[Rfam]
RNA sequence: AACCCUUUUUAAUGGCAAUCCUGUGAGUUUGCAAAGGGGGAACAAAGAAUUCACUAAAGAACUUGAGUGAAUUCUUAAUGUACCUCUUUGCCUUCAGGCAGAGAGUUUUUUUUU
Dot-bracket structure: ..(((((((.....((((.(......).)))))))))))......((((((((((.((....)).))))))))))..(.(.(.((((((((......)))))))).).).)...
The family of this 114-nucleotide RNA sequence from Bacillus gobiensis is "PyrR binding site".
NCBI's taxonomy places the organism under Bacteria, Bacillota, Bacilli, Caryophanales, Bacillus.